[Rfam]
RNA sequence: ACGUAUUCUCAGGGCGGGGUGAAAUUCCCCACCGGCGGUGAUAGCCCGCGAGCGCCGGCCUUCGGGUCGGGUCAGCAGACACCGGUGAAAAUCCGGGGCCGACGGUUAAAGUCCGGAUGGAAGAGAAUGAAA
Numbered sequence: 001a002c003g004u005a006u007u008c009u010c011a012g013g014g015c016g017g018g019g020u021g022a023a024a025u026u027c028c029c030c031a032c033c034g035g036c037g038g039u040g041a042u043a044g045c046c047c048g049c050g051a052g053c054g055c056c057g058g059c060c061u062u063c064g065g066g067u068c069g070g071g072u073c074a075g076c077a078g079a080c081a082c083c084g085g086u087g088a089a090a091a092u093c094c095g096g097g098g099c100c101g102a103c104g105g106u107u108a109a110a111g112u113c114c115g116g117a118u119g120g121a122a123g124a125g126a127a128u129g130a131a132a
Base pairs, nucleotide, nucleotide: 004129005128006127007126008125009124010123017029018028019027031112032111033101034100035049036048037047038046044099045098052076053075080097082096083095084094085093103115104114105113
The family of this 132-nucleotide sequence from Oricola thermophila is "FMN riboswitch aptamer (RFN element)". Rfam describes the family as follows. The RFN element is a highly conserved domain that is found frequently in the 5'-untranslated regions of prokaryotic mRNAs that encode for flavin mononucleotide (FMN) biosynthesis and transport proteins. The family's consensus secondary structure is taken from published work. The organism belongs to Oricola, within Bacteria. The match comes from Rfam's covariance-model search (110 bits).